[Rfam]
RNA: c-di-GMP-I riboswitch aptamer
Organism: Dysosmobacter segnis
RNA sequence: UAAGCUGAAGGGUAAACCACUACAAAUGAUGGGAUACAAAGUCACAGGGUCUAAACGGUGUAAACCGCAAGAUAGCCUGACUGCGAGG
Numbered sequence: 001u002a003a004g005c006u007g008a009a010g011g012g013u014a015a016a017c018c019a020c021u022a023c024a025a026a027u028g029a030u031g032g033g034a035u036a037c038a039a040a041g042u043c044a045c046a047g048g049g050u051c052u053a054a055a056c057g058g059u060g061u062a063a064a065c066c067g068c069a070a071g072a073u074a075g076c077c078u079g080a081c082u083g084c085g086a087g088g
Stems, first nucleotide, its partner, number of pairs: 012037002017032003021028002040082004046078003049073003056067004